About this RNA:
Shown here is a 105-nucleotide sequence from Peribacillus deserti, a member of the family "SAM riboswitch aptamer (S box leader)". On this family, see Grundy and Henkin, Mol Microbiol 1998: "The S box regulon: a new global transcription termination control system for methionine and cysteine biosynthesis genes in gram-positive bacteria". Gene Ontology term of the family: regulation of gene expression.
RNA sequence: UUCUUAUCAAGAGAGGCGGAGGGAAUGGCCCUUUGAAGCCCGGCAACCACUGUAUGUACAGUAAGGUGCUAAAUCCAGCGAAACAGUAGUUUCGAGAGAUAAGAG
Dot-bracket structure: ((((((((....(.(((...(((..[[[)))......))))((((.((((((......))))..))))))...(]]].((((((....))))))..)))))))))
The source organism's lineage runs through Bacteria, Bacillati, Bacillota, Caryophanales and Peribacillus.
Pairs were carried over by alignment from the consensus structure, which is taken from published work.